[Rfam]
RNA sequence: UACAACUGAUAUGAUGUUGUUCAAAUGAGUGGGUAACGCCACAAAGGGACACACACAAACUGCCUUCUGCAUUAGUAGCGGUGUCAUGCGAACGUGUAGUAAUAGCUAGGCUGAAGAGCAAAAAGCCAGUCCUAACGUAAAGCCGAGGAAAGGUUCACAGAGGUGUGGGCUGCUGGUGAUUAUGUAGUGAAGCUGUAUA
Numbered sequence: 001u002a003c004a005a006c007u008g009a010u011a012u013g014a015u016g017u018u019g020u021u022c023a024a025a026u027g028a029g030u031g032g033g034u035a036a037c038g039c040c041a042c043a044a045a046g047g048g049a050c051a052c053a054c055a056c057a058a059a060c061u062g063c064c065u066u067c068u069g070c071a072u073u074a075g076u077a078g079c080g081g082u083g084u085c086a087u088g089c090g091a092a093c094g095u096g097u098a099g100u101a102a103u104a105g106c107u108a109g110g111c112u113g114a115a116g117a118g119c120a121a122a123a124a125g126c127c128a129g130u131c132c133u134a135a136c137g138u139a140a141a142g143c144c145g146a147g148g149a150a151a152g153g154u155u156c157a158c159a160g161a162g163g164u165g166u167g168g169g170c171u172g173c174u175g176g177u178g179a180u181u182a183u184g185u186a187g188u189g190a191a192g193c194u195g196u197a198u199a
Stems, first nucleotide, its partner, number of pairs: 018051005032040002054189003062111004067099006076091001078089002118185003125177006131148003137143001152171008

Record summary
The record is a 199-nucleotide sequence from Lachnotalea glycerini, which matches "Group II catalytic intron D1-D4-5" in Rfam. The family has 139 seed sequences and 720 matches in Rfam 15.1.